[Rfam]
RNA sequence: ACGAGAGUCGAUGAAUCGAGAGAUGAAGAUGAAGCGAGCUAUGGAGCGAUCUAAUAUGGCGGAAGGAUAAUAACCCACAAAGGGACUAUAGAAGUUCCUUAUCCUCGAAAUUGGCAUCAGAGGAGAUCGUAUCUAGCAAUAGAUGUGUCGUGAACACGAAAGUGUCAUGCGGCGGACAAAGAGCGCCAGUAACUCCCCUGUGUACGGGGCGAUAUAGGAGAUUGAAUAAUCACGUACACUUACA
Numbered sequence: 001a002c003g004a005g006a007g008u009c010g011a012u013g014a015a016u017c018g019a020g021a022g023a024u025g026a027a028g029a030u031g032a033a034g035c036g037a038g039c040u041a042u043g044g045a046g047c048g049a050u051c052u053a054a055u056a057u058g059g060c061g062g063a064a065g066g067a068u069a070a071u072a073a074c075c076c077a078c079a080a081a082g083g084g085a086c087u088a089u090a091g092a093a094g095u096u097c098c099u100u101a102u103c104c105u106c107g108a109a110a111u112u113g114g115c116a117u118c119a120g121a122g123g124a125g126a127u128c129g130u131a132u133c134u135a136g137c138a139a140u141a142g143a144u145g146u147g148u149c150g151u152g153a154a155c156a157c158g159a160a161a162g163u164g165u166c167a168u169g170c171g172g173c174g175g176a177c178a179a180a181g182a183g184c185g186c187c188a189g190u191a192a193c194u195c196c197c198c199u200g201u202g203u204a205c206g207g208g209g210c211g212a213u214a215u216a217g218g219a220g221a222u223u224g225a226a227u228a229a230u231c232a233c234g235u236a237c238a239c240u241u242a243c244a
Stems, first nucleotide, its partner, number of pairs: 007030003015024003076152003080100008102124005125149003129146002132143004155164003200239007220231004
About this RNA:
This 244-nucleotide RNA from Anaerobium acetethylicum belongs to the Rfam family "Clostridiales-3 RNA". The match comes from Rfam's covariance-model search (158 bits). The source organism's lineage runs through Bacteria, Bacillati, Bacillota, Lachnospirales and Anaerobium.